[Rfam]
Background: The family of this 43-nucleotide RNA sequence from Escherichia coli is "ES036 (CssrF) sRNA". Rfam classes the family as a small RNA. Rfam's curators write: Differentially expressed under several chemical stress conditions. Also identified in Shigella as CssrF.

RNA sequence: AAAUUCUUCCAAAUUCAAUAUAUUGCAAAAAUCAUGUAGGCCU
Numbered sequence: 001a002a003a004u005u006c007u008u009c010c011a012a013a014u015u016c017a018a019u020a021u022a023u024u025g026c027a028a029a030a031a032u033c034a035u036g037u038a039g040g041c042c043u
Stems, first nucleotide, its partner, number of pairs: 004031002008027001010025003